[Rfam]
RNA sequence: AAAAUUCUUCGGGGCAGGGUGUAACUCCCUACCGGCGGUAGAGUCCGCGACCCAUGUAAAUGGCUGAACCGGUGUGAUUCCGGUACCGACAGUUAAAGUCUGGAUGAGAGAAGAAAAUG
Numbered sequence: 001a002a003a004a005u006u007c008u009u010c011g012g013g014g015c016a017g018g019g020u021g022u023a024a025c026u027c028c029c030u031a032c033c034g035g036c037g038g039u040a041g042a043g044u045c046c047g048c049g050a051c052c053c054a055u056g057u058a059a060a061u062g063g064c065u066g067a068a069c070c071g072g073u074g075u076g077a078u079u080c081c082g083g084u085a086c087c088g089a090c091a092g093u094u095a096a097a098g099u100c101u102g103g104a105u106g107a108g109a110g111a112a113g114a115a116a117a118u119g
Base pairs, nucleotide, nucleotide: 005115006114007113008112009111010110017029018028019027031099032098033088034087035048036047037046038045043086044085052063053062068084069083070082071081072080090102091101092100
Shown here is a 119-nucleotide sequence from Blautia pseudococcoides, a member of the family "FMN riboswitch aptamer (RFN element)". The base pairs follow the family's consensus structure, which is taken from published work. A search with the family's covariance model found it, with a score of 115 bits. Taxonomically the source falls in Blautia (Bacteria, Bacillati, Lachnospirales, Lachnospiraceae).